[Rfam]
RNA: Bacterial RNase P class A
Organism: Leucobacter weissii
RNA sequence: UGGGUCGGUGAGACGAUCGCGUCGCGCGUCGCUUCGGCGGCUGCGCGCCGAGGAACGUCCGGGCUGCGCAGAGGAGAACGGUGGGUAACACCCACCCGGGGCAACCCGCGAGAAAGUGCAACAGAGAGCAGACCAGCCAUCCCGGCUCCGUCGGGAUGGUCCGGGUGAAAGGGUGGUGUAAGAGACCACCGGCGUCCGUGGUGACACGGGCGGCCAGGCAAACCUCGUUCGCAGCAAGGCCAGACAGAAGACGAUGACGCUCCUCGCCGAGUCUUCGGGUGGGCUGCUAGAGGGCGUCGGCAACGGCGUCCCGAGAGAGAUGAUCGUCGCCCCGCCCCCGGGCGGGGAACAGAACCCGGCGUAUGAUCCGGCCCAUUCC
Numbered sequence: 001u002g003g004g005u006c007g008g009u010g011a012g013a014c015g016a017u018c019g020c021g022u023c024g025c026g027c028g029u030c031g032c033u034u035c036g037g038c039g040g041c042u043g044c045g046c047g048c049c050g051a052g053g054a055a056c057g058u059c060c061g062g063g064c065u066g067c068g069c070a071g072a073g074g075a076g077a078a079c080g081g082u083g084g085g086u087a088a089c090a091c092c093c094a095c096c097c098g099g100g101g102c103a104a105c106c107c108g109c110g111a112g113a114a115a116g117u118g119c120a121a122c123a124g125a126g127a128g129c130a131g132a133c134c135a136g137c138c139a140u141c142c143c144g145g146c147u148c149c150g151u152c153g154g155g156a157u158g159g160u161c162c163g164g165g166u167g168a169a170a171g172g173g174u175g176g177u178g179u180a181a182g183a184g185a186c187c188a189c190c191g192g193c194g195u196c197c198g199u200g201g202u203g204a205c206a207c208g209g210g211c212g213g214c215c216a217g218g219c220a221a222a223c224c225u226c227g228u229u230c231g232c233a234g235c236a237a238g239g240c241c242a243g244a245c246a247g248a249a250g251a252c253g254a255u256g257a258c259g260c261u262c263c264u265c266g267c268c269g270a271g272u273c274u275u276c277g278g279g280u281g282g283g284c285u286g287c288u289a290g291a292g293g294g295c296g297u298c299g300g301c302a303a304c305g306g307c308g309u310c311c312c313g314a315g316a317g318a319g320a321u322g323a324u325c326g327u328c329g330c331c332c333c334g335c336c337c338c339c340g341g342g343c344g345g346g347g348a349a350c351a352g353a354a355c356c357c358g359g360c361g362u363a364u365g366a367u368c369c370g371g372c373c374c375a376u377u378c379c
Stems, first nucleotide, its partner, number of pairs: 001375008011364001012328007020050002023047006055362003059359005064234004071264001073262002076230005081095005096110001097108004111225002116223002118219002133164002136160009172190006192214001193212008238285004247276006255269002258266002292311008